Rfam assigns this 71-nucleotide RNA sequence from Coccomyxa subellipsoidea to the family "tRNA". The base pairs follow the family's consensus structure, which is taken from published work. Its family is annotated with triplet codon-amino acid adaptor activity in the Gene Ontology. It scores 63 bits against the family's covariance model. For this family Rfam cites "The tertiary structure of tRNA and the development of the genetic code" (Hou, Trends Biochem Sci, 1993). The family's RNA type in Rfam is transfer RNA.

RNA sequence: GCGUCAGUGGUCUAGUGGUAGAAUACGUCCCUGCCACGGACGAGACCCGGGUUCGAUUCCCGGCUGACGCA
Numbered sequence: 001g002c003g004u005c006a007g008u009g010g011u012c013u014a015g016u017g018g019u020a021g022a023a024u025a026c027g028u029c030c031c032u033g034c035c036a037c038g039g040a041c042g043a044g045a046c047c048c049g050g051g052u053u054c055g056a057u058u059c060c061c062g063g064c065u066g067a068c069g070c071a
Stems, first nucleotide, its partner, number of pairs: 001070007010024002013021001026042005047063005